Rfam assigns this 80-nucleotide RNA from Alligator sinensis to the family "Mammalian CPEB3 ribozyme". Pairs were carried over by alignment from the consensus structure, which is taken from published work. The source organism's lineage runs through Eukaryota, Vertebrata, Gnathostomata, Amniota and Alligator. A search with the family's covariance model found it, with a score of 38 bits.
[Rfam]
RNA sequence: AGAGGUCACAAGUUGGAGGCAAGAGCAGAAGCGCUUAUGGCAUGGCCCUGUCAGAUGCCAGUGAAUCUGCAACUUCUUCU
Numbered sequence: 001a002g003a004g005g006u007c008a009c010a011a012g013u014u015g016g017a018g019g020c021a022a023g024a025g026c027a028g029a030a031g032c033g034c035u036u037a038u039g040g041c042a043u044g045g046c047c048c049u050g051u052c053a054g055a056u057g058c059c060a061g062u063g064a065a066u067c068u069g070c071a072a073c074u075u076c077u078u079c080u
Base pairs, nucleotide, nucleotide: 016048018047019046020045024080025079027077028076029075030074031043033041052069053068054067055066056065058063
Dot-bracket structure: ...............[.[[[...((.(((((.(.......).).]]]]...(((((.(....).)))))....)))).))